[Rfam]
RNA sequence: GUGUUCGCUGGAGUUCCCUUGACCACUUCAUCAAGGCUUAUUUCAUUAUUUGAUGCCUUGCUGAAGUGUUUGGGGGAACUCUCGGGUUCAC
Numbered sequence: 001g002u003g004u005u006c007g008c009u010g011g012a013g014u015u016c017c018c019u020u021g022a023c024c025a026c027u028u029c030a031u032c033a034a035g036g037c038u039u040a041u042u043u044c045a046u047u048a049u050u051u052g053a054u055g056c057c058u059u060g061c062u063g064a065a066g067u068g069u070u071u072g073g074g075g076g077a078a079c080u081c082u083c084g085g086g087u088u089c090a091c
Base pairs, nucleotide, nucleotide: 006086008084011081012080013079014078015077016076017075018074019073020072022071024068025067026066027065028064029063030062032060033059034058035057
RNA: mir-395 microRNA precursor family
Organism: Capsicum annuum